The family of this 197-nucleotide sequence from Candidatus Symbiopectobacterium sp. Dall1.0 is "GcvB RNA". The source organism's lineage runs through Bacteria, Pseudomonadota, Enterobacteriaceae, ant, tsetse, mealybug, aphid, etc. endosymbionts and Symbiopectobacterium. For this family Rfam cites "The gcvB gene encodes a small untranslated RNA involved in expression of the dipeptide and oligopeptide transport systems in Escherichia coli" (Urbanowski et al., Mol Microbiol, 2000).
RNA sequence: ACUUCCUUGAGCCGGAACGAAAGGUGCGGCAGGCGUUUCAUGAAGUGCUUUUGGCUUGUGGUUGUGAUGUUGUGUUUGCUAUUUAUUGUCUGCUUUUCAGACAUGGUAGACAAGGCUACCUUUCACUUCCUGUACAUUUACCCUGUCUGUCCAUAGUGAUUUUUAUGUGGCACCGCUUUUUAGCGGUGCUUUUUUUU
Numbered sequence: 001a002c003u004u005c006c007u008u009g010a011g012c013c014g015g016a017a018c019g020a021a022a023g024g025u026g027c028g029g030c031a032g033g034c035g036u037u038u039c040a041u042g043a044a045g046u047g048c049u050u051u052u053g054g055c056u057u058g059u060g061g062u063u064g065u066g067a068u069g070u071u072g073u074g075u076u077u078g079c080u081a082u083u084u085a086u087u088g089u090c091u092g093c094u095u096u097u098c099a100g101a102c103a104u105g106g107u108a109g110a111c112a113a114g115g116c117u118a119c120c121u122u123u124c125a126c127u128u129c130c131u132g133u134a135c136a137u138u139u140a141c142c143c144u145g146u147c148u149g150u151c152c153a154u155a156g157u158g159a160u161u162u163u164u165a166u167g168u169g170g171c172a173c174c175g176c177u178u179u180u181u182a183g184c185g186g187u188g189c190u191u192u193u194u195u196u197u
Base pairs, nucleotide, nucleotide: 010056011055012054013053016052017051022050023049024048025047026046027045030042031041032037087103088102089101090100091099092098105120106119107118108117109116134168135167136166137165169190170189171188172187173186174185175184176183
By type it is a non-coding RNA gene.
It scores 131 bits against the family's covariance model.
About the family: The gcvB gene encodes a small untranslated RNA involved in expression of the dipeptide and oligopeptide transport systems in Escherichia coli. Included several unknown homologues in alignment (Bateman A pers obs). It base-pairs with SorC. This interaction triggers the degradation of GcvB by RNase E, alleviating the GcvB-mediated mRNA repression of other amino acid-related transport and metabolic genes.
The family's consensus secondary structure is taken from published work.